[Rfam]
RNA sequence: CUCUUAUCGAGAGAGGCGGAGGGACUGGCCCGAUGAAGCCCGGCAACCUAUCGGAAGGGAUUCCGAUGUGGUGCCAAUUCCUGCAGAGAGUCUAUCUCUGGGAGAUGAGAG
Numbered sequence: 001c002u003c004u005u006a007u008c009g010a011g012a013g014a015g016g017c018g019g020a021g022g023g024a025c026u027g028g029c030c031c032g033a034u035g036a037a038g039c040c041c042g043g044c045a046a047c048c049u050a051u052c053g054g055a056a057g058g059g060a061u062u063c064c065g066a067u068g069u070g071g072u073g074c075c076a077a078u079u080c081c082u083g084c085a086g087a088g089a090g091u092c093u094a095u096c097u098c099u100g101g102g103a104g105a106u107g108a109g110a111g
Base pairs, nucleotide, nucleotide: 001111002110003109004108005107006106007105008104013041015040016039017038021031022030023029025083027081028080042075043074044073045072047071048070050067051066052065053064079103084100085099086098087097088096089095
A member of the RNA family "SAM riboswitch aptamer (S box leader)" from Planifilum fulgidum, 111 nucleotides long. Pairs were carried over by alignment from the consensus structure, which is taken from published work.